[Rfam]
RNA sequence: ACAGAAUUCCCCGGAGAAGGAACUCCGGGAAAAUAGAAUAAAAAUAAUUAAGAUAGUAAUAGGAAAAUGAACGAAUAUGUGC
Dot-bracket structure: ......((.(((((((......))))))))).....................................(.((......)).)
Rfam assigns this 82-nucleotide RNA sequence from Musa balbisiana to the family "Plastid-rpl20 3UTR RNA".
It scores 58 bits against the family's covariance model.
The family's RNA type in Rfam is cis-regulatory element.
Rfam 15.1 lists 587 matches to the family in 315 species.
Rfam's curators write: Plastid rpl20 is a non-coding RNA (ncRNA) recognised in plastids. It was found in the three prime untranslated region (3UTR) of rpl20 gene, it presence in the 3UTR region sugest a role in transcript maduration.